Bacillaceae-1 RNA: a 68-nucleotide RNA from Oceanobacillus iheyensis.
[Rfam]
RNA sequence: CAGGGGGGACCUUCUGCUAAAAUCGCCCACGUCCUGUGGGCAACGCAGAAAUCACCACAUCCUGUGGA
Numbered sequence: 001c002a003g004g005g006g007g008g009a010c011c012u013u014c015u016g017c018u019a020a021a022a023u024c025g026c027c028c029a030c031g032u033c034c035u036g037u038g039g040g041c042a043a044c045g046c047a048g049a050a051a052u053c054a055c056c057a058c059a060u061c062c063u064g065u066g067g068a
Base pairs, nucleotide, nucleotide: 012050013049014048015047016046017045026040027039028038029037030036055067056066057065058064
Notes: Pairs were carried over by alignment from the consensus structure, which is taken from published work. It is annotated as a small RNA. Lineage of the source: Bacteria > Bacilli > Caryophanales > Bacillaceae > Oceanobacillus iheyensis.